[Rfam]
RNA sequence: GCAGAAUGUUAGAAGGCCAAAGUAGAAGCACUCACAGUACAGUCCUGACAGAUUCCAACAAAUCUGUGAAUUCUGCU
Numbered sequence: 001g002c003a004g005a006a007u008g009u010u011a012g013a014a015g016g017c018c019a020a021a022g023u024a025g026a027a028g029c030a031c032u033c034a035c036a037g038u039a040c041a042g043u044c045c046u047g048a049c050a051g052a053u054u055c056c057a058a059c060a061a062a063u064c065u066g067u068g069a070a071u072u073c074u075g076c077u
Stems, first nucleotide, its partner, number of pairs: 015044003021077007028040001030038001049066006

A member of the RNA family "Mammalian CPEB3 ribozyme" from Crocodylus porosus, 77 nucleotides long.
The source organism's lineage runs through Eukaryota, Bilateria, Tetrapoda, Sauria and Crocodylus.
A search with the family's covariance model found it, with a score of 44 bits.